[Rfam]
MIR2275 microRNA precursor family: a 95-nucleotide sequence from Zizania palustris. Rfam 15.1 lists 785 matches to the family in 111 species. NCBI's taxonomy places the organism under Eukaryota, Embryophyta, Poales, Oryzoideae, Zizania. A search with the family's covariance model found it, with a score of 63 bits.

RNA sequence: GCUCUCAAGGUAAGAGUUGGAGGAAACUGAACUGUGUUUUCUUGUCAGUGACAGUUUCAUUAGUUCAGUUUUCUCCAACAUCUUGUCUUCGGAGU
Numbered sequence: 001g002c003u004c005u006c007a008a009g010g011u012a013a014g015a016g017u018u019g020g021a022g023g024a025a026a027c028u029g030a031a032c033u034g035u036g037u038u039u040u041c042u043u044g045u046c047a048g049u050g051a052c053a054g055u056u057u058c059a060u061u062a063g064u065u066c067a068g069u070u071u072u073c074u075c076c077a078a079c080a081u082c083u084u085g086u087c088u089u090c091g092g093a094g095u
Base pairs, nucleotide, nucleotide: 004092005091007089008088011085012084013083014082016079017078018077019076020075021074023072024071025070026069027068028067029066030065032063033062